[Rfam]
RNA sequence: GAAUAGCAGUUGGGGAGCUGGAUGAAUCUGGCUGAGAGGAAGUUACCAUUGAUACUUCGACCCUUAAACCUGAUCUGGAUAAUGCCAGCGUAGGAAAUAAUAAUUUCAACUUA
Dot-bracket structure: .....(..((.(((..(((((......)))))......(((((..........)))))..))).....((((..((((......))))..))))..))..)............
A member of the RNA family "TPP riboswitch aptamer (THI element)" from Alkaliphilus sp., 113 nucleotides long.